The record is a 69-nucleotide RNA sequence from Amborella trichopoda, which matches "Plastid-clpP 5UTR RNA" in Rfam. For this family Rfam cites "Retrograde signaling in plants: A critical review focusing on the GUN pathway and beyond" (Richter et al., Plant Commun, 2023). A search with the family's covariance model found it, with a score of 84 bits. Rfam describes the family as follows. Plastid clpP is a non-coding RNA (ncRNA) recognised in plastids. It was found in the prime untranslated region (5UTR) of a protease complex subunit (clpP) in plastids, suggesting a posible cis-regulatory function. The base pairs follow the family's consensus structure, which was predicted with LocARNA. The family's RNA type in Rfam is cis-regulatory element. The family has 343 seed sequences and 2,105 matches in Rfam 15.1.
RNA sequence: AACUUUGCUCGUAGGAACAAAGAGAUGCAGAUCUAUUCUGUACUCGAUAAGUAUCAAUACGUAAUGGGG
Numbered sequence: 001a002a003c004u005u006u007g008c009u010c011g012u013a014g015g016a017a018c019a020a021a022g023a024g025a026u027g028c029a030g031a032u033c034u035a036u037u038c039u040g041u042a043c044u045c046g047a048u049a050a051g052u053a054u055c056a057a058u059a060c061g062u063a064a065u066g067g068g069g
Stems, first nucleotide, its partner, number of pairs: 003022002006019002009016002043068003051060003